[Rfam]
This 83-nucleotide sequence from Otolemur garnettii belongs to the Rfam family "small Cajal body-specific RNA 18". NCBI's taxonomy places the organism under Eukaryota, Eumetazoa, Amniota, Strepsirrhini, Otolemur. About the family: scaRNAs are a specific class of small nuclear RNAs which localise to the Cajal bodies and guide the modification of RNA polymerase II transcribed spliceosomal RNAs U1, U2, U4, U5 and U12. This C/D box domain U91 (also known as U4-8) was identified by Darzacq and is predicted to guide the 2'O-ribose methylation of U4 snRNA C8. The family's RNA type in Rfam is small Cajal body RNA. Its family is annotated with RNA processing, nucleolus and Cajal body in the Gene Ontology. The base pairs follow the family's consensus structure, which was predicted with PFOLD.
RNA sequence: UCGCCGAUGAUGACAGGACCACUGCGCAGUCUGAGAUCUGGGAACCAGGUGAUGGAGUGUGUUCUCAGAACGGACUGAGGCUG
Numbered sequence: 001u002c003g004c005c006g007a008u009g010a011u012g013a014c015a016g017g018a019c020c021a022c023u024g025c026g027c028a029g030u031c032u033g034a035g036a037u038c039u040g041g042g043a044a045c046c047a048g049g050u051g052a053u054g055g056a057g058u059g060u061g062u063u064c065u066c067a068g069a070a071c072g073g074a075c076u077g078a079g080g081c082u083g
Base pairs, nucleotide, nucleotide: 003081004080005079038048039047040046041045